[Rfam]
RNA: ZMP/ZTP riboswitch aptamer (pfl RNA motif)
Organism: Cryobacterium cheniae
RNA sequence: CGACCCUGUCGCGACUGGCGUAGCAGGAAAGAUGGGUCACCAUCGGGGAGCGACUGACACGGUUAGUGACCGCACGCCUGGGCCACGACG
Number, nucleotide and partner (000 for none) at each position: 001c000002g000003a000004c000005c000006c056007u000008g054009u053010c052011g051012c050013g000014a000015c047016u046017g078018g077019c076020g075021u074022a000023g000024c000025a000026g000027g000028a000029a000030a000031g000032a043033u042034g041035g040036g000037u000038c000039a000040c035041c034042a033043u032044c000045g000046g016047g015048g000049a000050g012051c011052g010053a009054c008055u000056g006057a000058c000059a000060c000061g000062g000063u000064u000065a000066g000067u085068g084069a000070c082071c081072g000073c000074a021075c020076g019077c018078c017079u000080g000081g071082g070083c000084c068085a067086c000087g000088a000089c000090g000